[Rfam]
Archaeal RNase P: a 318-nucleotide RNA sequence from Pyrolobus fumarii. About the family: Ribonuclease P (RNase P) is a ubiquitous endoribonuclease, found in archaea, bacteria and eukarya as well as chloroplasts and mitochondria. Its best characterised activity is the generation of mature 5'-ends of tRNAs by cleaving the 5'-leader elements of precursor-tRNAs. By type it is a ribozyme. The match comes from Rfam's covariance-model search (144 bits). Lineage of the source: Archaea > Thermoproteati > Thermoprotei > Desulfurococcales > Pyrolobus fumarii.
RNA sequence: CCGCCCCGGCUGGCCGCUACGGCCGCAAGGCUGAGGAAACUCCGCCCUCCCCGCGGCACCGGGGCCCCGAAAGGGGGCGCGGGUGAAACCCGCGGCAACGGCACAGAAACGACACGCCCGCCUGCGGGAUGACGAUGAGGGGGCGAGGACCCUCGGGCAACCGAGGGUCAGCAACCCCCCGAGGACCCAGGCGGGUGCGUUGAAACGGCCGCCCCCCGGGGUGCAAGGGGGCGCGCCGAUGAGGGCCGCGCGACUGGCGCGCCGCCCCGCUUAGCCAAAUGCGGCCGAAGUACAGAAGGCGGGUUAUAGCCGGGGCGG
Number, nucleotide and partner (000 for none) at each position: 001c318002c317003g316004c000005c314006c313007c312008g311009g310010c309011u308012g286013g285014c284015c283016g282017c281018u000019a000020c033021g032022g031023c030024c029025g000026c000027a000028a000029g024030g023031c022032u021033g020034a000035g000036g000037a000038a305039a304040c303041u000042c302043c301044g300045c299046c298047c223048u000049c221050c220051c000052c252053g251054c250055g249056g000057c000058a000059c219060c218061g217062g216063g215064g078065c077066c076067c075068c074069g000070a000071a000072a000073g000074g068075g067076g066077g065078c064079g093080c092081g091082g090083g089084u000085g000086a000087a000088a000089c083090c082091c081092g080093c079094g214095g213096c000097a000098a000099c211100g210101g209102c208103a000104c000105a000106g000107a000108a000109a000110c000111g000112a000113c000114a000115c199116g198117c197118c194119c193120g192121c191122c190123u189124g188125c000126g000127g000128g000129a000130u000131g000132a000133c000134g000135a000136u000137g000138a000139g000140g179141g178142g177143g176144c000145g000146a000147g000148g000149a000150c000151c000152c000153u000154c000155g000156g000157g000158c000159a000160a000161c000162c000163g000164a000165g000166g000167g000168u000169c000170a000171g000172c000173a000174a000175c000176c143177c142178c141179c140180c000181g000182a000183g000184g000185a000186c000187c000188c124189a123190g122191g121192c120193g119194g118195g000196u000197g117198c116199g115200u000201u000202g000203a000204a000205a000206c000207g000208g102209c101210c100211g099212c000213c095214c094215c063216c062217c061218g060219g059220g050221g049222u000223g047224c000225a000226a000227g268228g267229g266230g265231g262232c261233g260234c259235g258236c000237c000238g000239a000240u000241g000242a000243g000244g000245g000246c000247c000248g000249c055250g054251c053252g052253a000254c000255u000256g000257g000258c235259g234260c233261g232262c231263c000264g000265c230266c229267c228268c227269g000270c000271u000272u000273a000274g000275c000276c000277a000278a000279a000280u000281g017282c016283g015284g014285c013286c012287g000288a000289a000290g000291u000292a000293c000294a000295g000296a000297a000298g046299g045300c044301g043302g042303g040304u039305u038306a000307u000308a011309g010310c009311c008312g007313g006314g005315g000316c003317g002318g001